[Rfam]
Nucleotides: 228
Stems, first nucleotide, its partner, number of pairs: 001228002004225003008221007016213011028201004033196001037192011050178013065165003069161003074155001080147003087142003091138002093132002096129005102123001107117002
Number, partner (000 for none) and nucleotide at each position: 001228u002227g003000g004225u005224u006223a007000c008221a009220a010219a011218a012217u013216a014215a015000c016213u017212u018211a019210u020209u021208c022207u023206g024205u025204a026203g027000c028201c029200a030199c031198u032000g033196u034000g035000a036000g037192u038191u039190a040189c041188g042187a043186u044185a045184a046183u047182u048000a049000u050178u051177a052176u053175g054174u055173u056172a057171a058170u059169u060168u061167a062166c063000g064000a065165g066164a067163u068000u069161a070160u071159a072000g073000u074155a075000a076000c077000u078000c079000a080147u081146u082145g083000c084000u085000a086000a087142g088141u089140g090000a091138u092137u093132u094131a095000c096129u097128a098127u099126a100125a101000c102123g103000u104000u105000a106000u107117g108116g109000u110000a111000a112000a113000u114000a115000u116108c117107c118000u119000c120000a121000u122000u123102u124000a125100u126099u127098a128097u129096a130000u131094u132093a133000a134000c135000c136000u137092a138091a139000c140089u141088a142087u143000c144000a145082u146081a147080a148000a149000u150000a151000u152000g153000u154000a155074u156000u157000g158000a159071u160070a161069u162000u163067a164066u165065c166062g167061u168060a169059a170058a171057u172056u173055a174054g175053u176052a177051u178050a179000u180000a181000a182047a183046a184045u185044u186043a187042u188041c189040g190039u191038a192037a193000a194000u195000a196033a197000a198031g199030g200029u201028g202000a203026c204025u205024a206023c207022a208021g209020a210019a211018u212017a213016a214000c215014u216013u217012a218011u219010u220009u221008u222000a223006u224005a225004g226000g227002c228001a
Rfam assigns this 228-nucleotide RNA sequence from Miscanthus lutarioriparius to the family "MIR6217 microRNA precursor family".
Its family is annotated with miRNA-mediated post-transcriptional gene silencing and RISC complex in the Gene Ontology.
Pairs were carried over by alignment from the consensus structure, which was predicted with RNAalifold.